[Rfam]
RNA sequence: CAAGGAAUUCAGAGAUGGAUUCCUGAAUCGUAAGAAGUCAGCCGAGGUCAUAGUAAUCCCAUGGGGAUGAAGGAC
Number, nucleotide and partner (000 for none) at each position: 001c025002a024003a000004g023005g022006a021007a020008u019009u018010c017011a016012g000013a000014g000015a000016u011017g010018g009019a008020u007021u006022c005023c004024u002025g001026a000027a000028u000029c000030g000031u000032a000033a000034g000035a000036a000037g000038u045039c044040a000041g000042c000043c000044g039045a038046g000047g075048u074049c073050a000051u000052a000053g000054u000055a000056a068057u067058c066059c065060c064061a000062u000063g000064g060065g059066g058067a057068u056069g000070a000071a000072g000073g049074a048075c047
Group II catalytic intron D1-D4-1: a 75-nucleotide RNA sequence from Salisediminibacterium selenitireducens. Its family is annotated with Group II intron splicing in the Gene Ontology. Rfam describes the family as follows. Group II introns are found in rRNA, tRNA and mRNA of organelles in fungi, plants and protists, and also in mRNA in bacteria. Lineage of the source: Bacteria > Caryophanales > Bacillaceae > Salisediminibacterium > Salisediminibacterium selenitireducens.